[Rfam]
RNA sequence: CCAAAAAUAAAAAGAUUCGUCUGAAACGAACAAAAAUAAAAUUGGAAAUUUUAGGUUUUGUGAGUGAAAGAUGAAUACUUUUUACUGUACUUGGGUACCCAAGUGC
Numbered sequence: 001c002c003a004a005a006a007a008u009a010a011a012a013a014g015a016u017u018c019g020u021c022u023g024a025a026a027c028g029a030a031c032a033a034a035a036a037u038a039a040a041a042u043u044g045g046a047a048a049u050u051u052u053a054g055g056u057u058u059u060g061u062g063a064g065u066g067a068a069a070g071a072u073g074a075a076u077a078c079u080u081u082u083u084a085c086u087g088u089a090c091u092u093g094g095g096u097a098c099c100c101a102a103g104u105g106c
Stems, first nucleotide, its partner, number of pairs: 008084007015076008026065002030061006037053007087106008
The family of this 106-nucleotide RNA sequence from Lactococcus lactis is "lactis-plasmid RNA". Pairs were carried over by alignment from the consensus structure, which is taken from published work. The family's RNA type in Rfam is small RNA. NCBI's taxonomy places the organism under Bacteria, Bacillati, Bacillota, Lactobacillales, Lactococcus.